[Rfam]
RNA sequence: CGAUGAAAGCCACCAGCUUCCAGCACGAAAGCAGCACCGCCCGGAUGGCCUCCGGCAUGACGUCGCGUGCCCGCCGACCGGAAUCCCACAUAUUCGCUGGGUGACCGGAGCUUCGUGCUGUCUG
Numbered sequence: 001c002g003a004u005g006a007a008a009g010c011c012a013c014c015a016g017c018u019u020c021c022a023g024c025a026c027g028a029a030a031g032c033a034g035c036a037c038c039g040c041c042c043g044g045a046u047g048g049c050c051u052c053c054g055g056c057a058u059g060a061c062g063u064c065g066c067g068u069g070c071c072c073g074c075c076g077a078c079c080g081g082a083a084u085c086c087c088a089c090a091u092a093u094u095c096g097c098u099g100g101g102u103g104a105c106c107g108g109a110g111c112u113u114c115g116u117g118c119u120g121u122c123u124g
Base pairs, nucleotide, nucleotide: 031121032120033119034118035117036116039111040110041108042107043079044078046076047075048074049073054071055070056069057068058067059066080106081105085101086100087099088098089096